This 171-nucleotide RNA from Endozoicomonas elysicola belongs to the Rfam family "Lysine riboswitch aptamer". Rfam links the family to the GO term lysine biosynthetic process.

RNA sequence: UCCCGAAUUAGAGGCGCGCUGUUUAUCAGUAAAUCGGAAUAGGGUGACACCCGCACACCGAUUGAAAGGAAAUGGCGCCGAAGUGAGUGUGGCAGUCAACCAUUCUUACUGGUAGUGCAUCGAAUAGGUGUACUACUGUCACAGUUUAUACUGUGGAGAGCUAACGGGUAC
Numbered sequence: 001u002c003c004c005g006a007a008u009u010a011g012a013g014g015c016g017c018g019c020u021g022u023u024u025a026u027c028a029g030u031a032a033a034u035c036g037g038a039a040u041a042g043g044g045u046g047a048c049a050c051c052c053g054c055a056c057a058c059c060g061a062u063u064g065a066a067a068g069g070a071a072a073u074g075g076c077g078c079c080g081a082a083g084u085g086a087g088u089g090u091g092g093c094a095g096u097c098a099a100c101c102a103u104u105c106u107u108a109c110u111g112g113u114a115g116u117g118c119a120u121c122g123a124a125u126a127g128g129u130g131u132a133c134u135a136c137u138g139u140c141a142c143a144g145u146u147u148a149u150a151c152u153g154u155g156g157a158g159a160g161c162u163a164a165c166g167g168g169u170a171c
Stems, first nucleotide, its partner, number of pairs: 008164004016078009032063006082110006089103004111137011139156007